[Rfam]
RNA sequence: GGGUCUAGAGACUAAGCUCUAGAGGAUAAAUUAAUAAGAUAGUCGGGCCGCUAUCU
Numbered sequence: 001g002g003g004u005c006u007a008g009a010g011a012c013u014a015a016g017c018u019c020u021a022g023a024g025g026a027u028a029a030a031u032u033a034a035u036a037a038g039a040u041a042g043u044c045g046g047g048c049c050g051c052u053a054u055c056u
Stems, first nucleotide, its partner, number of pairs: 005022006037056007

A member of the RNA family "nhaA-I RNA", 56 nucleotides long. Rfam classes the family as a riboswitch. Rfam's curators put it in the seed alignment.